[Rfam]
RNA sequence: UCUGGGAUGCUGUUUUAUGUACAGAGAAGCAGAGAUUUCAGA
Number, nucleotide and partner (000 for none) at each position: 001u042002c041003u040004g039005g038006g037007a036008u035009g000010c032011u031012g030013u029014u000015u000016u000017a000018u000019g000020u000021a000022c000023a000024g000025a000026g000027a000028a000029g013030c012031a011032g010033a000034g000035a008036u007037u006038u005039c004040a003041g002042a001
RNA: MAT2A 3'UTR stem loop D
Organism: Rhynochetos jubatus